[Rfam]
RNA sequence: GUGAAAUAAAUCACAUAACAAACAUACACCCCUUUGUUUGAACGUGAACAUUUCUCCCAUCCCCUUUGUGAAAAAGAGGCGUCUUAUUUCUCGAGAAUAAGGCGCCUCU
Numbered sequence: 001g002u003g004a005a006a007u008a009a010a011u012c013a014c015a016u017a018a019c020a021a022a023c024a025u026a027c028a029c030c031c032c033u034u035u036g037u038u039u040g041a042a043c044g045u046g047a048a049c050a051u052u053u054c055u056c057c058c059a060u061c062c063c064c065u066u067u068g069u070g071a072a073a074a075a076g077a078g079g080c081g082u083c084u085u086a087u088u089u090c091u092c093g094a095g096a097a098u099a100a101g102g103c104g105c106c107u108c109u
Stems, first nucleotide, its partner, number of pairs: 003054005011047004019040006078106011